Rfam assigns this 95-nucleotide RNA sequence from Pseudodonghicola xiamenensis to the family "Rhodo-rpoB RNA". The family's RNA type in Rfam is cis-regulatory element.
RNA sequence: GGAUCGGGAAGGUCGCCAGUCGGGACGGCGAUCGUGAAUUGAUCCAGACACGCACUCUCGGAUGGGCAAGCGGCCGGAGCCCGGCGGUCGUCUUG
Dot-bracket structure: (((((.....(((((((.........))))))).......))))).....................((((.(((((........)))))..))))